A member of the RNA family "c-di-GMP-I riboswitch aptamer" from Paenibacillus sp. N3.4, 89 nucleotides long.
GEMM was predicted in a large-scale screen for bacterial structured RNA regulatory elements. Genes associated with GEMM are involved in a diverse array of functions, including chemotaxis regulation, signal transduction, secretion and chitin.
The source organism's lineage runs through Bacteria, Bacilli, Caryophanales, Paenibacillaceae and Paenibacillus.
Rfam links the family to the GO term cyclic-di-GMP binding.

[Rfam]
RNA sequence: UCGUGAAAAAGGCAAACUUACCGAAAGGUAAGGACGCAAAGCUUCAGGUCUAAGGUUGCCUACGCAACGAUGAUGGCUGAGCUGCGACA
Numbered sequence: 001u002c003g004u005g006a007a008a009a010a011g012g013c014a015a016a017c018u019u020a021c022c023g024a025a026a027g028g029u030a031a032g033g034a035c036g037c038a039a040a041g042c043u044u045c046a047g048g049u050c051u052a053a054g055g056u057u058g059c060c061u062a063c064g065c066a067a068c069g070a071u072g073a074u075g076g077c078u079g080a081g082c083u084g085c086g087a088c089a
Base pairs, nucleotide, nucleotide: 012037013036017032018031019030020029021028022027040083041082042081043080045079046078047077048074049073050072055068056067057066058065